[Rfam]
RNA sequence: CCUUCCGAGCCUCCAGUACCACGUGUCAGGGCCACAUGAGCUGGGCCUCGUGGGCCUGAUGUGGUGCUGGGGCCUCAGGGGUC
Numbered sequence: 001c002c003u004u005c006c007g008a009g010c011c012u013c014c015a016g017u018a019c020c021a022c023g024u025g026u027c028a029g030g031g032c033c034a035c036a037u038g039a040g041c042u043g044g045g046c047c048u049c050g051u052g053g054g055c056c057u058g059a060u061g062u063g064g065u066g067c068u069g070g071g072g073c074c075u076c077a078g079g080g081g082u083c
Stems, first nucleotide, its partner, number of pairs: 004080003007076003011072012025060003029057005035052004040046002